RNA sequence: AUCUCUUUGCCUUUUGGCUUAGAUCAAGUGUAGUAUCUGUUCUUUUCAGUGUAACAACUGAAAUGACCUCAAUGAGGCUCAUUACCUUUUAAUUUGUUACAAUACACAUUUUUUGGCACCCAAAAUAAUAAAAUGGACGGGAAGAGACUUUUUAAGCAAGUUGUUUUCCGCUAAUGUCAGGUCUCACUAC
Numbered sequence: 001a002u003c004u005c006u007u008u009g010c011c012u013u014u015u016g017g018c019u020u021a022g023a024u025c026a027a028g029u030g031u032a033g034u035a036u037c038u039g040u041u042c043u044u045u046u047c048a049g050u051g052u053a054a055c056a057a058c059u060g061a062a063a064u065g066a067c068c069u070c071a072a073u074g075a076g077g078c079u080c081a082u083u084a085c086c087u088u089u090u091a092a093u094u095u096g097u098u099a100c101a102a103u104a105c106a107c108a109u110u111u112u113u114u115g116g117c118a119c120c121c122a123a124a125a126u127a128a129u130a131a132a133a134u135g136g137a138c139g140g141g142a143a144g145a146g147a148c149u150u151u152u153u154a155a156g157c158a159a160g161u162u163g164u165u166u167u168c169c170g171c172u173a174a175u176g177u178c179a180g181g182u183c184u185c186a187c188u189a190c
Stems, first nucleotide, its partner, number of pairs: 004023003009018003044063006065080002067077004110143006117136001125134002146183005153174001155172003
Shown here is a 190-nucleotide RNA sequence from Saccharomyces cerevisiae, a member of the family "U2 spliceosomal RNA". Rfam's curators put it in the seed alignment. The family's RNA type in Rfam is spliceosomal small nuclear RNA. Its Rfam clan is "U2 clan". Rfam describes the family as follows. U2 is a small nuclear RNA (snRNA) component of the spliceosome (involved in pre-mRNA splicing). Complementary binding between U2 snRNA (in an area lying towards the 5' end but 3' to hairpin I) and the branchpoint sequence (BPS) of the intron results the bulging out of an unpaired adenosine, on the BPS, which initiates a nucleophilic attack at the intronic 5' splice site, thus starting the first of two transesterification reactions that mediate splicing.